mir-221 microRNA precursor family: an 84-nucleotide RNA sequence from Scleropages formosus. NCBI's taxonomy places the organism under Eukaryota, Eumetazoa, Bilateria, Deuterostomia, Scleropages.
RNA sequence: CAUGGCUUGAACCUGGCAUACAAUGUAGAUUUCUGUGUUGUUCAAGCUACAGCUACAUUGUCUGCUGGGUUUCAGGCUGGUCAG
Numbered sequence: 001c002a003u004g005g006c007u008u009g010a011a012c013c014u015g016g017c018a019u020a021c022a023a024u025g026u027a028g029a030u031u032u033c034u035g036u037g038u039u040g041u042u043c044a045a046g047c048u049a050c051a052g053c054u055a056c057a058u059u060g061u062c063u064g065c066u067g068g069g070u071u072u073c074a075g076g077c078u079g080g081u082c083a084g
Stems, first nucleotide, its partner, number of pairs: 013068006020061009033052004